[Rfam]
RNA sequence: AGAUCAUGUUUAAUGUCAUUGUAGAAGCGUGCUCGUCGCGACCCUUGCCAGCCCUUUUCAGGGCUGUAAUUCUACA
Numbered sequence: 001a002g003a004u005c006a007u008g009u010u011u012a013a014u015g016u017c018a019u020u021g022u023a024g025a026a027g028c029g030u031g032c033u034c035g036u037c038g039c040g041a042c043c044c045u046u047g048c049c050a051g052c053c054c055u056u057u058u059c060a061g062g063g064c065u066g067u068a069a070u071u072c073u074a075c076a
Base pairs, nucleotide, nucleotide: 012045015042016041017040020076021075022074023073024072025071026070027039028038029037049066050065051064052063053062054061055060